A member of the RNA family "msiK RNA" from Ruania alkalisoli, 59 nucleotides long. The match comes from Rfam's covariance-model search (68 bits). The family's consensus secondary structure is taken from published work.

[Rfam]
RNA sequence: GCAUGGCACUCUUCACAACGGAUCGUCCGGCACGUACCUGCCGGUGAAGGGAAAGACGC
Number, nucleotide and partner (000 for none) at each position: 001g000002c000003a000004u000005g000006g000007c000008a000009c051010u050011c049012u048013u047014c046015a045016c000017a000018a000019c000020g000021g000022a000023u000024c000025g000026u000027c044028c043029g042030g041031c040032a039033c000034g000035u000036a000037c000038c000039u032040g031041c030042c029043g028044g027045u015046g014047a013048a012049g011050g010051g009052a000053a000054a000055g000056a000057c000058g000059c000